[Rfam]
RNA sequence: UACGUGCUCCGGGGUCGGUGGAAUUCCGAACCGGCGGUUAUAGUCCGCGAGCCGCAGACGACGCGUUCUCAUCUCGAGAGCGAACACUCUUCGGUUGACCUGGUGAAACUCCGGGACCGACGGUAACGAGGCGAGAUUCUUCGCCUCCAAAGUCCGGAUGAGAGGAUGCACGCG
Numbered sequence: 001u002a003c004g005u006g007c008u009c010c011g012g013g014g015u016c017g018g019u020g021g022a023a024u025u026c027c028g029a030a031c032c033g034g035c036g037g038u039u040a041u042a043g044u045c046c047g048c049g050a051g052c053c054g055c056a057g058a059c060g061a062c063g064c065g066u067u068c069u070c071a072u073c074u075c076g077a078g079a080g081c082g083a084a085c086a087c088u089c090u091u092c093g094g095u096u097g098a099c100c101u102g103g104u105g106a107a108a109c110u111c112c113g114g115g116a117c118c119g120a121c122g123g124u125a126a127c128g129a130g131g132c133g134a135g136a137u138u139c140u141u142c143g144c145c146u147c148c149a150a151a152g153u154c155c156g157g158a159u160g161a162g163a164g165g166a167u168g169c170a171c172g173c174g
Stems, first nucleotide, its partner, number of pairs: 003172005008166003016028003032119002034048004043117002051095003099115005121156003
The record is a 174-nucleotide RNA from Agreia sp. Leaf210, which matches "FMN riboswitch aptamer (RFN element)" in Rfam. Pairs were carried over by alignment from the consensus structure, which is taken from published work.